Overview: This 67-nucleotide RNA sequence belongs to the Rfam family "Cyano-1 RNA". Rfam 15.1 lists 283 matches to the family in 194 species.

RNA sequence: UAAAUUGUGAGGAAAAAAUCCUUCACAGGGUGGAAACAAGGACACACUCCUGAGAUUGAUUUCGAAA
Numbered sequence: 001u002a003a004a005u006u007g008u009g010a011g012g013a014a015a016a017a018a019u020c021c022u023u024c025a026c027a028g029g030g031u032g033g034a035a036a037c038a039a040g041g042a043c044a045c046a047c048u049c050c051u052g053a054g055a056u057u058g059a060u061u062u063c064g065a066a067a
Stems, first nucleotide, its partner, number of pairs: 016062005023055002027051003030047003